[Rfam]
RNA sequence: UGUUACAAAUAUCGUGGUGGCAUUUAAAUGUACCCUGGCCAUCCGAUAUUUUUGGUUGA
Numbered sequence: 001u002g003u004u005a006c007a008a009a010u011a012u013c014g015u016g017g018u019g020g021c022a023u024u025u026a027a028a029u030g031u032a033c034c035c036u037g038g039c040c041a042u043c044c045g046a047u048a049u050u051u052u053u054g055g056u057u058g059a
Stems, first nucleotide, its partner, number of pairs: 002056004007051004012046003016043006